[Rfam]
RNA sequence: UUAACUUUAAUAAAAAAUUUAAAUCUGUUCUUAUCAGUUUAAUAUCUGAUAUGUCCUCUAUCUGAGGACUAUAUAUUAAAUGGAUUUUGGGAACAGGGAGAUGGAAUAGGAGCUUGCUCCAUCCACUCCACGCAUCUACCUGGUCUUGCAGUACCUCCAGGAACGGUGCACCUCCC
Numbered sequence: 001u002u003a004a005c006u007u008u009a010a011u012a013a014a015a016a017a018u019u020u021a022a023a024u025c026u027g028u029u030c031u032u033a034u035c036a037g038u039u040u041a042a043u044a045u046c047u048g049a050u051a052u053g054u055c056c057u058c059u060a061u062c063u064g065a066g067g068a069c070u071a072u073a074u075a076u077u078a079a080a081u082g083g084a085u086u087u088u089g090g091g092a093a094c095a096g097g098g099a100g101a102u103g104g105a106a107u108a109g110g111a112g113c114u115u116g117c118u119c120c121a122u123c124c125a126c127u128c129c130a131c132g133c134a135u136c137u138a139c140c141u142g143g144u145c146u147u148g149c150a151g152u153a154c155c156u157c158c159a160g161g162a163a164c165g166g167u168g169c170a171c172c173u174c175c176c
Stems, first nucleotide, its partner, number of pairs: 032051006053069006097129004103123002109120004132169005139161005
Source information:
The family of this 176-nucleotide RNA from Platysternon megacephalum is "U2 spliceosomal RNA". The base pairs follow the family's consensus structure, which is taken from published work. A search with the family's covariance model found it, with a score of 123 bits. The family's RNA type in Rfam is spliceosomal small nuclear RNA. On this family, see Zwieb, Nucleic Acids Res 1997: "The uRNA database".